[Rfam]
RNA sequence: AUGGAAAUGAUGAUCCUUUCCCCACAUGAUCGACUAUGAUUAUACUAAGCUACUCUAUUUCUCUUCGGAGAAAUAUCAAGCCAGAAAUCUGAUCCAU
Numbered sequence: 001a002u003g004g005a006a007a008u009g010a011u012g013a014u015c016c017u018u019u020c021c022c023c024a025c026a027u028g029a030u031c032g033a034c035u036a037u038g039a040u041u042a043u044a045c046u047a048a049g050c051u052a053c054u055c056u057a058u059u060u061c062u063c064u065u066c067g068g069a070g071a072a073a074u075a076u077c078a079a080g081c082c083a084g085a086a087a088u089c090u091g092a093u094c095c096a097u
Base pairs, nucleotide, nucleotide: 001097002096003095004094005093